[Rfam]
RNA: Group II catalytic intron D1-D4-1
Nucleotides: 086
Base pairs, nucleotide, nucleotide: 001025002024006021007020008019009018010017011016038045039044047086048085049084056079057078058077059076060075061074062073063072
Number, partner (000 for none) and nucleotide at each position: 001025c002024a003000a004000c005000c006021c007020a008019c009018a010017c011016a012000g013000u014000g015000a016011u017010g018009u019008g020007u021006g022000a023000c024002u025001g026000a027000a028000c029000u030000g031000u032000c033000a034000g035000a036000a037000g038045u039044c040000a041000g042000c043000a044039g045038a046000g047086g048085c049084c050000a051000u052000a053000g054000u055000a056079c057078u058077g059076c060075a061074g062073u063072g064000g065000a066000u067000g068000c069000a070000u071000a072063c073062a074061c075060u076059g077058c078057a079056g080000g081000a082000a083000g084049g085048g086047c